[Rfam]
RNA sequence: UAAAAGGAUAGAGGCGCAAUCAACAUCAGUAAUAACAGACCAUGUAGGCAAACUGUCUGUUGUAAAAGGGGCGAUUGCCGAAAUUAGGGUCACACUGCCUUGUGAUUUUAGUUGGAACAUUGGUUAAUAGCCCUUGUUCUGUCAUUAUCUAGAUGAUAAUGGAGAGCUAACCGCAAA
Numbered sequence: 001u002a003a004a005a006g007g008a009u010a011g012a013g014g015c016g017c018a019a020u021c022a023a024c025a026u027c028a029g030u031a032a033u034a035a036c037a038g039a040c041c042a043u044g045u046a047g048g049c050a051a052a053c054u055g056u057c058u059g060u061u062g063u064a065a066a067a068g069g070g071g072c073g074a075u076u077g078c079c080g081a082a083a084u085u086a087g088g089g090u091c092a093c094a095c096u097g098c099c100u101u102g103u104g105a106u107u108u109u110a111g112u113u114g115g116a117a118c119a120u121u122g123g124u125u126a127a128u129a130g131c132c133c134u135u136g137u138u139c140u141g142u143c144a145u146u147a148u149c150u151a152g153a154u155g156a157u158a159a160u161g162g163a164g165a166g167c168u169a170a171c172c173g174c175a176a177a
Stems, first nucleotide, its partner, number of pairs: 006172002009169003016078006024070001032063008082113012114140006122132003142162007